[Rfam]
RNA: Small nucleolar RNA SNORD35
Nucleotides: 083
Stems, first nucleotide, its partner, number of pairs: 001078004
Number, partner (000 for none) and nucleotide at each position: 001078u002077g003076c004075a005000a006000a007000u008000g009000a010000u011000g012000u013000u014000u015000u016000u017000c018000u019000c020000a021000c022000g023000a024000u025000g026000g027000u028000c029000u030000u031000c032000c033000a034000a035000g036000c037000c038000u039000u040000c041000g042000g043000g044000u045000u046000c047000u048000g049000a050000c051000g052000a053000c054000a055000u056000c057000g058000c059000c060000u061000u062000u063000u064000g065000g066000c067000a068000a069000a070000a071000c072000u073000g074000a075004u076003g077002c078001a079000g080000g081000a082000a083000a